[Rfam]
RNA: MIR398 microRNA precursor family
Organism: Mikania micrantha
RNA sequence: GAAAAUCCUACAGGGGCGACCUGAGAACACAUGAAACAAUCAUUGUUAUUAAGCAUGUCAUGUGUUCUCAAGUCACACCUAUUGGAUCUCU
Numbered sequence: 001g002a003a004a005a006u007c008c009u010a011c012a013g014g015g016g017c018g019a020c021c022u023g024a025g026a027a028c029a030c031a032u033g034a035a036a037c038a039a040u041c042a043u044u045g046u047u048a049u050u051a052a053g054c055a056u057g058u059c060a061u062g063u064g065u066u067c068u069c070a071a072g073u074c075a076c077a078c079c080u081a082u083u084g085g086a087u088c089u090c091u
Stems, first nucleotide, its partner, number of pairs: 007085002012080003016076001018074002023069010